[Rfam]
The record is a 336-nucleotide sequence from Neomonachus schauinslandi, which matches "Nuclear RNase P" in Rfam. On this family, see Frank and Pace, Annu Rev Biochem 1998: "Ribonuclease P: unity and diversity in a tRNA processing ribozyme". Rfam 15.1 lists 3,848 matches to the family in 1,862 species. Rfam describes the family as follows. Ribonuclease P (RNase P) is a ubiquitous endoribonuclease, found in archaea, bacteria and eukarya as well as chloroplasts and mitochondria. Its best characterised activity is the generation of mature 5'-ends of tRNAs by cleaving the 5'-leader elements of precursor-tRNAs. Cellular RNase Ps are ribonucleoproteins. RNA from bacterial RNase Ps retains its catalytic activity in the absence of the protein subunit, i.e. it is a ribozyme. The family's RNA type in Rfam is ribozyme.

RNA sequence: GGUGGAGGGAAGCUCAUCAGUGGGGCCCUCAGGAGCUGAGUGCCUUGCGUCACUCUACCCCACGUUGCCUGGAAAGGUCUGGGACUAGAGCCAAAAGUGGCCCUAACAGGAUCCUCCUUGAGUUUCAAAAGAGGUGAGUUUUCAGAGAAUGCAGCUCGUUGCUCCUGAGGGCGGACUGGGUAGGAGAUGCAGUGGACCGGCCCUUGGGGACGGGGCCUGGCAGAUGCCUCAGCCUGAGCUUGGAACAGACUCUCACAGCCAGGGAAGUGAGCUCAACGGCUGCGGUGAGGUACCCUGCCCGGCCUCGUAACCCAGUUCAGAUCACUUUCCCCUAUC
Numbered sequence: 001g002g003u004g005g006a007g008g009g010a011a012g013c014u015c016a017u018c019a020g021u022g023g024g025g026c027c028c029u030c031a032g033g034a035g036c037u038g039a040g041u042g043c044c045u046u047g048c049g050u051c052a053c054u055c056u057a058c059c060c061c062a063c064g065u066u067g068c069c070u071g072g073a074a075a076g077g078u079c080u081g082g083g084a085c086u087a088g089a090g091c092c093a094a095a096a097g098u099g100g101c102c103c104u105a106a107c108a109g110g111a112u113c114c115u116c117c118u119u120g121a122g123u124u125u126c127a128a129a130a131g132a133g134g135u136g137a138g139u140u141u142u143c144a145g146a147g148a149a150u151g152c153a154g155c156u157c158g159u160u161g162c163u164c165c166u167g168a169g170g171g172c173g174g175a176c177u178g179g180g181u182a183g184g185a186g187a188u189g190c191a192g193u194g195g196a197c198c199g200g201c202c203c204u205u206g207g208g209g210a211c212g213g214g215g216c217c218u219g220g221c222a223g224a225u226g227c228c229u230c231a232g233c234c235u236g237a238g239c240u241u242g243g244a245a246c247a248g249a250c251u252c253u254c255a256c257a258g259c260c261a262g263g264g265a266a267g268u269g270a271g272c273u274c275a276a277c278g279g280c281u282g283c284g285g286u287g288a289g290g291u292a293c294c295c296u297g298c299c300c301g302g303c304c305u306c307g308u309a310a311c312c313c314a315g316u317u318c319a320g321a322u323c324a325c326u327u328u329c330c331c332c333u334a335u336c
Base pairs, nucleotide, nucleotide: 001336002335003334004333008330009329010328013284015282016281018279023068025066038055039054040053041052042051043049079320080319081318082317083316090259091258099113100112102110103109114133115132116131118129119128134254136252137251138250139249140248154239155238156237157236158235285308286307287306288305289304290303291302